[Rfam]
Background
5' ureB small RNA: a 284-nucleotide RNA sequence from Zoogloea dura. Rfam links the family to the GO term negative regulation of gene expression.
RNA sequence: CCUCUUCGAUCUGCUGCGGGCAGAUGAAGUGGAUGUGGGUGUCGAUGCCGCCGGCGGUGACGAUCAUGCCUUCACCGGCAAUGACCUCGGUGGCGGCGCCGAUGGCUAUCGUGACGCCCGGCUGGAUGUCGGGGUUGCCGGCCUUGCCGAUGGCGCUGAUGCGGCCGUUCUUGAUGCCGAUGUCGGCCUUGACGACGCCCCAGUGGUCGAGGAUCAGGGCGUUGGUGAUGACCGUGUCGGCCACUUCGGCGGCCAGGCGCUGGCCCUGCCCCAUGCCGUCGCGG
Numbered sequence: 001c002c003u004c005u006u007c008g009a010u011c012u013g014c015u016g017c018g019g020g021c022a023g024a025u026g027a028a029g030u031g032g033a034u035g036u037g038g039g040u041g042u043c044g045a046u047g048c049c050g051c052c053g054g055c056g057g058u059g060a061c062g063a064u065c066a067u068g069c070c071u072u073c074a075c076c077g078g079c080a081a082u083g084a085c086c087u088c089g090g091u092g093g094c095g096g097c098g099c100c101g102a103u104g105g106c107u108a109u110c111g112u113g114a115c116g117c118c119c120g121g122c123u124g125g126a127u128g129u130c131g132g133g134g135u136u137g138c139c140g141g142c143c144u145u146g147c148c149g150a151u152g153g154c155g156c157u158g159a160u161g162c163g164g165c166c167g168u169u170c171u172u173g174a175u176g177c178c179g180a181u182g183u184c185g186g187c188c189u190u191g192a193c194g195a196c197g198c199c200c201c202a203g204u205g206g207u208c209g210a211g212g213a214u215c216a217g218g219g220c221g222u223u224g225g226u227g228a229u230g231a232c233c234g235u236g237u238c239g240g241c242c243a244c245u246u247c248g249g250c251g252g253c254c255a256g257g258c259g260c261u262g263g264c265c266c267u268g269c270c271c272c273a274u275g276c277c278g279u280c281g282c283g284g
Base pairs, nucleotide, nucleotide: 003284005283007281008280009279012158013157015155016154017153018076019075022072023071030053031052032051034050035049037048039046040045057069058068059067077148078147081144083142085140090138091137092136093135094134095130096129097128099125100124102123103120104119105117106116164270166268167267171263172262173261175259176258178257186220187219188218189217190216191215200209223255224254225253230246231245234244235243236242
Pairs were carried over by alignment from the consensus structure, which was predicted with mfold.